[Rfam]
The record is a 172-nucleotide sequence from Lachancea kluyveri, which matches "Small nucleolar RNA snR8" in Rfam.
Taxonomically the source falls in Lachancea kluyveri (Eukaryota, Opisthokonta, Ascomycota, Lachancea).
Clan: SNORA56 clan.
By type it is an H/ACA-box small nucleolar RNA.
The literature on the family includes a 1988 paper in Mol Cell Biol by Parker et al., "Genetic analysis of small nuclear RNAs in Saccharomyces cerevisiae: viable sextuple mutant".
RNA sequence: UUGAUACGAAAUAUUAAGCCUUCUAUUCACUGUGCCAUCUCUAUUUAUACUUCCGUAGAUGAUCAGAGGGGAAAAGAAGCGCAAGACUGAAAAACGCAAGCGUCCUCAUACUGAACAAGGUACUUUUCUUUUUUCAUUGGCCUUGGUUGGUAACUACGUGAGCGAGACAACC
Numbered sequence: 001u002u003g004a005u006a007c008g009a010a011a012u013a014u015u016a017a018g019c020c021u022u023c024u025a026u027u028c029a030c031u032g033u034g035c036c037a038u039c040u041c042u043a044u045u046u047a048u049a050c051u052u053c054c055g056u057a058g059a060u061g062a063u064c065a066g067a068g069g070g071g072a073a074a075a076g077a078a079g080c081g082c083a084a085g086a087c088u089g090a091a092a093a094a095c096g097c098a099a100g101c102g103u104c105c106u107c108a109u110a111c112u113g114a115a116c117a118a119g120g121u122a123c124u125u126u127u128c129u130u131u132u133u134u135c136a137u138u139g140g141c142c143u144u145g146g147u148u149g150g151u152a153a154c155u156a157c158g159u160g161a162g163c164g165a166g167a168c169a170a171c172c
Stems, first nucleotide, its partner, number of pairs: 018082002021078002030068002033065002036061005095164003100159003111150003116145006123139001